[Rfam]
This 32-nucleotide RNA from Lipotes vexillifer belongs to the Rfam family "Iron response element II".
The literature on the family includes a 1989 paper in Proc Natl Acad Sci U S A by Koeller et al., "A cytosolic protein binds to structural elements within the iron regulatory region of the transferrin receptor mRNA".
RNA sequence: ACUAAAUCUGAAGCAGUGCCUUUCAAUUUUUU
Numbered sequence: 001a002c003u004a005a006a007u008c009u010g011a012a013g014c015a016g017u018g019c020c021u022u023u024c025a026a027u028u029u030u031u032u
Stems, first nucleotide, its partner, number of pairs: 001032001004029004009025003012021002014018001
The family's RNA type in Rfam is cis-regulatory element.
Rfam describes the family as follows. IRE, TFRC, SLC40A1, SDHB, SLC11A2, CDC42BPA, ACO2, ALAS2_H.SAPIENS, CDC14A, EPAS1, ALAS2, qoxD, Hao1, NDUFS1, transferrin, Aconitate.